[Rfam]
RNA: HIV Ribosomal frameshift signal
RNA sequence: UUUUUUAGGGAAAAUAUGGCCUUCCAACAGCGGAAGGCCAGGGAAUUUCCUU
Numbered sequence: 001u002u003u004u005u006u007a008g009g010g011a012a013a014a015u016a017u018g019g020c021c022u023u024c025c026a027a028c029a030g031c032g033g034a035a036g037g038c039c040a041g042g043g044a045a046u047u048u049c050c051u052u
Stems, first nucleotide, its partner, number of pairs: 008052003012048003015042001017040009